The family of this 199-nucleotide RNA from Podarcis muralis is "Small nucleolar RNA SNORA74". From the family's description: U19 belongs to the H/ACA class of snoRNAs. snoRNAs bind a number of proteins (including dyskerin, Gar1p and Nop10p in the case of the H/ACA class) to form snoRNP complexes. This class are thought to guide the sites of modification of uridines to pseudouridines by forming direct base pairing interactions with substrate RNAs. Targets may include ribosomal and spliceosomal RNAs but the exact functions of many snoRNAs, including U19, are not confirmed. The match comes from Rfam's covariance-model search (101 bits). The literature on the family includes a 1996 paper in Mol Cell Biol by Kiss et al., "Characterization of the intron-encoded U19 RNA, a new mammalian small nucleolar RNA that is not associated with fibrillarin". Rfam classes the family as an H/ACA-box small nucleolar RNA.

RNA sequence: UUCAGCGGUAGUCAGCUGUCCGUGUCAUUACCGUGCCUGACAGUGUUACACUGCUGGGAGAUGAAAAUAUUGUCCAGUCUGUCUGUCAUUGUCACCGUUCUGGAGGCAUUUUGGCAGCAGGGUGGGGCAGUGCUGUGCUUCUCUGAGAUUGUGCUGAGCAGUUAAUAUCCUGCUCAGCACUAGAAUGGGAGCAUACACA
Numbered sequence: 001u002u003c004a005g006c007g008g009u010a011g012u013c014a015g016c017u018g019u020c021c022g023u024g025u026c027a028u029u030a031c032c033g034u035g036c037c038u039g040a041c042a043g044u045g046u047u048a049c050a051c052u053g054c055u056g057g058g059a060g061a062u063g064a065a066a067a068u069a070u071u072g073u074c075c076a077g078u079c080u081g082u083c084u085g086u087c088a089u090u091g092u093c094a095c096c097g098u099u100c101u102g103g104a105g106g107c108a109u110u111u112u113g114g115c116a117g118c119a120g121g122g123u124g125g126g127g128c129a130g131u132g133c134u135g136u137g138c139u140u141c142u143c144u145g146a147g148a149u150u151g152u153g154c155u156g157a158g159c160a161g162u163u164a165a166u167a168u169c170c171u172g173c174u175c176a177g178c179a180c181u182a183g184a185a186u187g188g189g190a191g192c193a194u195a196c197a198c199a
Stems, first nucleotide, its partner, number of pairs: 001058009011049002015044006024036002068132008081123001082119001083117006090108004095103002135194008151180003155176007